[Rfam]
This 118-nucleotide RNA sequence from Brassica oleracea belongs to the Rfam family "MIR9563 microRNA precursor family".
RNA sequence: GUAAUAUAAGUUACAGUCUCUUAACUUUUAACUAAAAAAACUAAGAGACGUCUCUUAAAUAAGAGAUUUAAGAGACGUCUUUUUUAGUUAAAAGCUAAGAGACUGUAUCUUAUAUUAC
Numbered sequence: 001g002u003a004a005u006a007u008a009a010g011u012u013a014c015a016g017u018c019u020c021u022u023a024a025c026u027u028u029u030a031a032c033u034a035a036a037a038a039a040a041c042u043a044a045g046a047g048a049c050g051u052c053u054c055u056u057a058a059a060u061a062a063g064a065g066a067u068u069u070a071a072g073a074g075a076c077g078u079c080u081u082u083u084u085u086a087g088u089u090a091a092a093a094g095c096u097a098a099g100a101g102a103c104u105g106u107a108u109c110u111u112a113u114a115u116u117a118c
Stems, first nucleotide, its partner, number of pairs: 001118010012107012025094015047079001